[Rfam]
RNA sequence: CGUGCGGGCAAGCAUUCUCGUAGUAGGUAGGCGCAUCGGCAACGUGGGGUAGAACCCCGCGCGAUAGCUGAUGCGCCGAAAACAGGUCCCACACGGGGCCUUUUUUAUUGCCUUUU
Numbered sequence: 001c002g003u004g005c006g007g008g009c010a011a012g013c014a015u016u017c018u019c020g021u022a023g024u025a026g027g028u029a030g031g032c033g034c035a036u037c038g039g040c041a042a043c044g045u046g047g048g049g050u051a052g053a054a055c056c057c058c059g060c061g062c063g064a065u066a067g068c069u070g071a072u073g074c075g076c077c078g079a080a081a082a083c084a085g086g087u088c089c090c091a092c093a094c095g096g097g098g099c100c101u102u103u104u105u106u107a108u109u110g111c112c113u114u115u116u
Base pairs, nucleotide, nucleotide: 003025005023026112027111028110029109030077031076032075033074034073035072036071037070038069039068043059044058046056047055082102084101085100086099087098088097089096090095

The family of this 116-nucleotide RNA from Devosia crocina is "Rhizobiales sRNA Atu_C8". It is annotated as a small RNA.